[Rfam]
Shown here is a 646-nucleotide RNA sequence from Brassica carinata, a member of the family "MIR824 microRNA precursor family". The literature on the family includes a 2010 paper in J Exp Bot by Moldovan et al., "Hypoxia-responsive microRNAs and trans-acting small interfering RNAs in Arabidopsis". Rfam links the family to the GO terms RISC complex and miRNA-mediated post-transcriptional gene silencing. Taxonomically the source falls in Brassica (Eukaryota, Euphyllophyta, Spermatophyta, Brassicaceae). The family's consensus secondary structure was predicted with WAR.
RNA sequence: CUUGAGUUGUCUUUCAUGUCUAGACCAUUUGUGAGAAGGGUUGUGUGAUUUGCUCCGUUCGCCCCACCAGUCUUUCAAUCUGAAGUGAGUAUUAUGCAAAAUUAAGGAAAAUAGCUGUUCAAUAUAUCACACUACUGUUUUAAAAACAAUUCCAUAGAUAGAUGCUUUUACAGCUUCAGAUAGUGAUGUUAUGUAUAUCUCCCUAAAACCCACACCCAAGUAGAAAGGUCUAGGUCACAGACUCACAGCCAUUAUUGCCUUGCUAUACCUCUCGAUUAAGCUGUUUAUUUCUGUCAUCAAGAUCUGACCCUUAAUGAGCUAGGUAUAAAACUAAGUACAUAAAUUGCAUUCAUGACAUUUCUGGAUGGCAUACGUAGCUUUAUCAUUGUUUUUGGAUUUGUUCAUACUGAUUCUCUUAUCAAAUCGCUUACACUUCGGGCAGCAUUUUGCCUAUUGGAUAUGUCAAACUUAUGUCUGGAGUGUUAGAGGUUUUCCGUGAUAGCUAAGAACUUGAAUCUUGCACUACUUAGCUCACUAGUCAGUAGUUUACUUGGUAAUAAAUAAAAUGGAGGGGAGUGGGGAAGGUGCUGGAUUACUAUUCCCUUCUCAUCGAUGGUCUAGAUGUGCGAGGUGACUCUCAUGGAGG
Number, nucleotide and partner (000 for none) at each position: 001c645002u644003u643004g637005a636006g635007u634008u633009g632010u631011c630012u629013u628014u000015c626016a625017u624018g623019u622020c621021u620022a619023g618024a617025c616026c615027a614028u613029u612030u000031g610032u609033g608034a607035g606036a605037a604038g603039g602040g601041u000042u000043g000044u000045g000046u000047g000048a000049u000050u000051u000052g588053c587054u000055c585056c584057g000058u000059u000060c000061g000062c000063c000064c579065c000066a000067c000068c578069a577070g000071u000072c000073u575074u574075u573076c572077a000078a000079u000080c000081u000082g000083a000084a000085g000086u000087g000088a000089g000090u000091a000092u000093u000094a000095u000096g000097c000098a000099a000100a000101a000102u000103u000104a000105a000106g000107g000108a000109a000110a000111a000112u000113a000114g000115c000116u000117g000118u000119u000120c000121a000122a000123u000124a000125u000126a000127u000128c000129a000130c000131a000132c000133u000134a000135c000136u000137g000138u000139u000140u000141u000142a000143a000144a000145a000146a000147c000148a000149a000150u000151u000152c000153c000154a000155u000156a000157g000158a000159u000160a000161g000162a000163u000164g000165c000166u000167u000168u000169u000170a000171c000172a000173g000174c000175u000176u000177c000178a000179g000180a000181u000182a000183g000184u000185g000186a000187u000188g000189u000190u000191a000192u000193g000194u000195a000196u000197a000198u000199c000200u000201c000202c000203c000204u000205a000206a000207a000208a000209c000210c000211c000212a000213c000214a000215c000216c000217c000218a000219a000220g000221u000222a000223g000224a000225a000226a000227g000228g000229u000230c000231u000232a000233g000234g000235u000236c000237a000238c000239a000240g000241a000242c000243u000244c000245a000246c000247a000248g000249c000250c000251a000252u000253u000254a000255u000256u000257g000258c000259c000260u000261u000262g000263c000264u000265a000266u000267a000268c000269c000270u000271c000272u000273c000274g000275a000276u000277u000278a000279a000280g000281c000282u000283g000284u000285u000286u000287a000288u000289u000290u000291c000292u000293g000294u000295c000296a000297u000298c000299a000300a000301g000302a000303u000304c000305u000306g000307a000308c000309c000310c000311u000312u000313a000314a000315u000316g000317a000318g000319c000320u000321a000322g000323g000324u000325a000326u000327a000328a000329a000330a000331c000332u000333a000334a000335g000336u000337a000338c000339a000340u000341a000342a000343a000344u000345u000346g000347c000348a000349u000350u000351c000352a000353u000354g000355a000356c000357a000358u000359u000360u000361c000362u000363g000364g000365a000366u000367g000368g000369c000370a000371u000372a000373c000374g000375u000376a000377g000378c000379u000380u000381u000382a000383u000384c000385a000386u000387u000388g000389u000390u000391u000392u000393u000394g000395g000396a000397u000398u000399u000400g000401u000402u000403c000404a000405u000406a000407c000408u000409g000410a000411u000412u000413c000414u000415c000416u000417u000418a000419u000420c000421a000422a000423a000424u000425c000426g000427c000428u000429u000430a000431c000432a000433c000434u000435u000436c000437g000438g000439g000440c000441a000442g000443c000444a000445u000446u000447u000448u000449g000450c000451c000452u000453a000454u000455u000456g000457g000458a000459u000460a000461u000462g000463u000464c000465a000466a000467a000468c000469u000470u000471a000472u000473g000474u000475c000476u000477g000478g000479a000480g000481u000482g000483u000484u000485a000486g000487a000488g000489g000490u000491u000492u000493u000494c000495c000496g000497u000498g000499a000500u000501a000502g000503c000504u000505a000506a000507g000508a000509a000510c000511u000512u000513g000514a000515a000516u000517c000518u000519u000520g000521c000522a000523c000524u000525a000526c000527u000528u000529a000530g000531c000532u000533c000534a000535c000536u000537a000538g000539u000540c000541a000542g000543u000544a000545g000546u000547u000548u000549a000550c000551u000552u000553g000554g000555u000556a000557a000558u000559a000560a000561a000562u000563a000564a000565a000566a000567u000568g000569g000570a000571g000572g076573g075574g074575a073576g000577u069578g068579g064580g000581g000582a000583a000584g056585g055586u000587g053588c052589u000590g000591g000592a000593u000594u000595a000596c000597u000598a000599u000600u000601c040602c039603c038604u037605u036606c035607u034608c033609a032610u031611c000612g029613a028614u027615g026616g025617u024618c023619u022620a021621g020622a019623u018624g017625u016626g015627c000628g013629a012630g011631g010632u009633g008634a007635c006636u005637c004638u000639c000640a000641u000642g000643g003644a002645g001646g000